Background: mir-8/mir-141/mir-200 microRNA precursor family: a 69-nucleotide sequence from Loxodonta africana. It scores 62 bits against the family's covariance model. Its family is annotated with RISC complex and miRNA-mediated post-transcriptional gene silencing in the Gene Ontology.

RNA sequence: ACGGGCGUCUUACCAGGCAAAGUUAGAUCUGGAUCGUUCUGUCUAAUACUGUCUGGUAAUGCCGUCUGU
Numbered sequence: 001a002c003g004g005g006c007g008u009c010u011u012a013c014c015a016g017g018c019a020a021a022g023u024u025a026g027a028u029c030u031g032g033a034u035c036g037u038u039c040u041g042u043c044u045a046a047u048a049c050u051g052u053c054u055g056g057u058a059a060u061g062c063c064g065u066c067u068g069u
Stems, first nucleotide, its partner, number of pairs: 002068006009061001010059010022047006
Its Rfam clan is "mir-8 microRNA precursor clan". The base pairs follow the family's consensus structure, which was predicted with RNAalifold. A reference for the family is Lagos-Quintana et al. (2001), "Identification of novel genes coding for small expressed RNAs", Science.